[Rfam]
RNA sequence: UACCAUUAUAUUAAAAAGUUAAUUUUUUUGGUUGGUGGUGCCUGUCUCAUAUCAGUGAGGGACAAAACAACUCCUUGUUUAUCCCAGCUUGGCUUUUGCUCUGUGCCCAUGCCUGGUUCAUGCCCUGGACACAUGG
Numbered sequence: 001u002a003c004c005a006u007u008a009u010a011u012u013a014a015a016a017a018g019u020u021a022a023u024u025u026u027u028u029u030g031g032u033u034g035g036u037g038g039u040g041c042c043u044g045u046c047u048c049a050u051a052u053c054a055g056u057g058a059g060g061g062a063c064a065a066a067a068c069a070a071c072u073c074c075u076u077g078u079u080u081a082u083c084c085c086a087g088c089u090u091g092g093c094u095u096u097u098g099c100u101c102u103g104u105g106c107c108c109a110u111g112c113c114u115g116g117u118u119c120a121u122g123c124c125c126u127g128g129a130c131a132c133a134u135g136g
Stems, first nucleotide, its partner, number of pairs: 001064001004061001006059002011055002014052001018048001024040001027038002076131006091124003097120002101116003105112002
Dot-bracket structure: (..(.((...((.(...(.....(..((........)).).......)...).))..)).)..)...........((((((.........(((...((..(((.((....)).)))..)).))).)))))).....

A member of the RNA family "Small nucleolar RNA SNORA48" from Cervus hanglu, 136 nucleotides long. Its family is annotated with nucleolus and RNA processing in the Gene Ontology. On this family, see Ofengand and Bakin, J Mol Biol 1997: "Mapping to nucleotide resolution of pseudouridine residues in large subunit ribosomal RNAs from representative eukaryotes, prokaryotes, archaebacteria, mitochondria and chloroplasts". It scores 88 bits against the family's covariance model. The family has 24 seed sequences and 2,109 matches in Rfam 15.1. Its Rfam clan is "SNORA48 clan".